[Rfam]
RNA sequence: CCAGAGAGAUUUUCUUGCAUGAGCAACAAGAAAGUCAGAUGGACUACACGUCAAUUAAUUAGUGCAUUAUUGAGAUUUAUUUUAAGCCAUAAAAUUCAACAACGACAAUUAGUAACUUUCUGGAAAGUGAAAAUAUGAAGUUGUGGUGCUUCCUUGAAAUUAUAUUAAUAAUUUCUUGAUUAGGAGUGAAAUGGUUAGUUGGCUAUCUUAA
Numbered sequence: 001c002c003a004g005a006g007a008g009a010u011u012u013u014c015u016u017g018c019a020u021g022a023g024c025a026a027c028a029a030g031a032a033a034g035u036c037a038g039a040u041g042g043a044c045u046a047c048a049c050g051u052c053a054a055u056u057a058a059u060u061a062g063u064g065c066a067u068u069a070u071u072g073a074g075a076u077u078u079a080u081u082u083u084a085a086g087c088c089a090u091a092a093a094a095u096u097c098a099a100c101a102a103c104g105a106c107a108a109u110u111a112g113u114a115a116c117u118u119u120c121u122g123g124a125a126a127g128u129g130a131a132a133a134u135a136u137g138a139a140g141u142u143g144u145g146g147u148g149c150u151u152c153c154u155u156g157a158a159a160u161u162a163u164a165u166u167a168a169u170a171a172u173u174u175c176u177u178g179a180u181u182a183g184g185a186g187u188g189a190a191a192u193g194g195u196u197a198g199u200u201g202g203c204u205a206u207c208u209u210a211a
Stems, first nucleotide, its partner, number of pairs: 001042003008036010050203010066154001069151001099144005106137002108134003115128005
This 211-nucleotide RNA sequence belongs to the Rfam family "RT-16 RNA". Rfam classes the family as a small RNA.